The family of this 87-nucleotide sequence from Loktanella fryxellensis is "Glycine riboswitch aptamer".
[Rfam]
RNA sequence: ACAGGCCGUGCAGGAGAGACCGGUUCACUCCGGCGCCGAAGGAGCAACCCCCCGGAAACUCUCAGGCAAAUGAACUGCACGAUCAGC
Numbered sequence: 001a002c003a004g005g006c007c008g009u010g011c012a013g014g015a016g017a018g019a020c021c022g023g024u025u026c027a028c029u030c031c032g033g034c035g036c037c038g039a040a041g042g043a044g045c046a047a048c049c050c051c052c053c054g055g056a057a058a059c060u061c062u063c064a065g066g067c068a069a070a071u072g073a074a075c076u077g078c079a080c081g082a083u084c085a086g087c
Base pairs, nucleotide, nucleotide: 007081008080009079010078011077012076013075020033021032022031023030035067036066037065038063039062042061043060044059048055049054

The pairing is the family consensus, mapped onto this sequence.